Overview:
A member of the RNA family "Small nucleolar RNA SNORA55" from Centropus unirufus, 131 nucleotides long. Pairs were carried over by alignment from the consensus structure, which was predicted with PFOLD. It is annotated as an H/ACA-box small nucleolar RNA. A search with the family's covariance model found it, with a score of 110 bits. Its family is annotated with nucleolus and RNA processing in the Gene Ontology. About the family: ACA55 is a member of the H/ACA class of snoRNA that guide the sites of modification of uridines to pseudouridines.

RNA sequence: GCACCAAAUCUUUCCCAUUCCUUGCUGUGUGGUGUGGGCCUGGGGACACAUGGUGCUUACAGAAAAGCAGAGUGAAUCCAGACAGGGCGUCUUGUUCACUGAGUGCCUGUCUCUACACCUCUGCAACAUCC
Number, nucleotide and partner (000 for none) at each position: 001g056002c055003a054004c053005c052006a000007a000008a000009u000010c000011u000012u046013u045014c044015c043016c042017a041018u000019u000020c038021c037022u000023u000024g000025c000026u000027g000028u000029g000030u000031g000032g000033u000034g000035u000036g000037g021038g020039c000040c000041u017042g016043g015044g014045g013046a012047c000048a000049c000050a000051u000052g005053g004054u003055g002056c001057u000058u000059a000060c000061a000062g000063a000064a000065a000066a000067g124068c123069a122070g121071a120072g119073u000074g000075a000076a000077u000078c000079c000080a112081g111082a110083c109084a108085g107086g106087g000088c000089g000090u000091c103092u102093u101094g000095u000096u000097c000098a000099c000100u000101g093102a092103g091104u000105g000106c086107c085108u084109g083110u082111c081112u080113c000114u000115a000116c000117a000118c000119c072120u071121c070122u069123g068124c067125a000126a000127c000128a000129u000130c000131c000